[Rfam]
RNA sequence: GGCCUUCUGUAUACGAGCUGAUAUUUUAGCAAACACCAGACCGUCAGGAUUGAUGAGGCUCCCAAGAUAAGUGAAGCG
Numbered sequence: 001g002g003c004c005u006u007c008u009g010u011a012u013a014c015g016a017g018c019u020g021a022u023a024u025u026u027u028a029g030c031a032a033a034c035a036c037c038a039g040a041c042c043g044u045c046a047g048g049a050u051u052g053a054u055g056a057g058g059c060u061c062c063c064a065a066g067a068u069a070a071g072u073g074a075a076g077c078g
Base pairs, nucleotide, nucleotide: 002077003076005074006073008071010069011068012067017062020061021060024058025057026056027055028054030052
Overview: This 78-nucleotide RNA from Schistosoma japonicum belongs to the Rfam family "mir-3492 microRNA precursor family". The organism belongs to Schistosoma, within Eukaryota. It scores 46 bits against the family's covariance model. Rfam links the family to the GO terms RISC complex and miRNA-mediated post-transcriptional gene silencing.